Shown here is an 89-nucleotide sequence from Propithecus coquereli, a member of the family "Stem loopII regulatory element in POLB". Rfam classes the family as a cis-regulatory element. Gene Ontology term of the family: regulation of RNA stability. Taxonomically the source falls in Propithecus (Eukaryota, Bilateria, Deuterostomia, Theria).

RNA sequence: AGUUCAGCAGGAGCCUUCAUUUAUUUCUUAAUUUUUGCUAUGUAAAGGUCUUCGAUGCUUUUAAAUGAUUAUUGUUUCUCCUUUAUGCU
Numbered sequence: 001a002g003u004u005c006a007g008c009a010g011g012a013g014c015c016u017u018c019a020u021u022u023a024u025u026u027c028u029u030a031a032u033u034u035u036u037g038c039u040a041u042g043u044a045a046a047g048g049u050c051u052u053c054g055a056u057g058c059u060u061u062u063a064a065a066u067g068a069u070u071a072u073u074g075u076u077u078c079u080c081c082u083u084u085a086u087g088c089u
Stems, first nucleotide, its partner, number of pairs: 009082004016064002019061001025055002031049008